Shown here is a 72-nucleotide RNA sequence from Ceratitis capitata, a member of the family "mir-305 microRNA precursor family". On this family, see Weaver et al., Genome Biol 2007: "Computational and transcriptional evidence for microRNAs in the honey bee genome". It scores 88 bits against the family's covariance model. NCBI's taxonomy places the organism under Eukaryota, Protostomia, Arthropoda, Acalyptratae, Ceratitis. The family's consensus secondary structure was predicted with RNAalifold.
RNA sequence: CAUGUCUAUUGUACUUCAUCAGGUGCUCUGGUGCUCGCUUUACCCGGCACAUGUUGAAGUACAUUCCAUAUG
Numbered sequence: 001c002a003u004g005u006c007u008a009u010u011g012u013a014c015u016u017c018a019u020c021a022g023g024u025g026c027u028c029u030g031g032u033g034c035u036c037g038c039u040u041u042a043c044c045c046g047g048c049a050c051a052u053g054u055u056g057a058a059g060u061a062c063a064u065u066c067c068a069u070a071u072g
Stems, first nucleotide, its partner, number of pairs: 001072004010063003014059005020053002023050005030044002
Dot-bracket structure: ((((.....(((.(((((.((.(((((..((...........)).))))).)).))))).))).....))))